Overview: Rfam assigns this 103-nucleotide RNA sequence from Dokdonella sp. to the family "Glycine riboswitch aptamer". NCBI's taxonomy places the organism under Bacteria, Pseudomonadota, Gammaproteobacteria, Lysobacterales, Dokdonella. The base pairs follow the family's consensus structure. Its family is annotated with glycine biosynthetic process in the Gene Ontology.
RNA sequence: UGCACACACUCUGGAGAGAUCGGUCGCGCGAACGCGCGCCGGCGCCGAAGGGGCAAGAAGCGCGAGCUUCCAAACUCUCAGGCAAAAGGACAGAGGGGCGCCC
Numbered sequence: 001u002g003c004a005c006a007c008a009c010u011c012u013g014g015a016g017a018g019a020u021c022g023g024u025c026g027c028g029c030g031a032a033c034g035c036g037c038g039c040c041g042g043c044g045c046c047g048a049a050g051g052g053g054c055a056a057g058a059a060g061c062g063c064g065a066g067c068u069u070c071c072a073a074a075c076u077c078u079c080a081g082g083c084a085a086a087a088g089g090a091c092a093g094a095g096g097g098g099c100g101c102c103c
Stems, first nucleotide, its partner, number of pairs: 007097001009095005020042004044083003047079002051077003057070002